[Rfam]
The record is a 135-nucleotide RNA from Smithornis capensis, which matches "Small nucleolar RNA SNORA13" in Rfam. The family has 50 seed sequences and 1,034 matches in Rfam 15.1. The organism belongs to Smithornis, within Eukaryota. The family's consensus secondary structure was predicted with CMfinder. The family's RNA type in Rfam is H/ACA-box small nucleolar RNA.
RNA sequence: GGCCUUUGUGGUGCUCACUCAUUCCUGUCCAGAACGAAUGUGGUGUCAAAAAAGGCAAACAGGAGUUCUUGCUCAGACUGUUUUAAGGACCUGGUUCUGUACCUUUCUCCUCUCUGUUCUCGCAAAGACAAAAUA
Numbered sequence: 001g002g003c004c005u006u007u008g009u010g011g012u013g014c015u016c017a018c019u020c021a022u023u024c025c026u027g028u029c030c031a032g033a034a035c036g037a038a039u040g041u042g043g044u045g046u047c048a049a050a051a052a053a054g055g056c057a058a059a060c061a062g063g064a065g066u067u068c069u070u071g072c073u074c075a076g077a078c079u080g081u082u083u084u085a086a087g088g089a090c091c092u093g094g095u096u097c098u099g100u101a102c103c104u105u106u107c108u109c110c111u112c113u114c115u116g117u118u119c120u121c122g123c124a125a126a127g128a129c130a131a132a133a134u135a
Stems, first nucleotide, its partner, number of pairs: 002056006009048002012045004016040002019037002022034002067128004071123001073122001075120003083116001086113002088110001093103002

Rfam links the family to the GO terms nucleolus and RNA processing.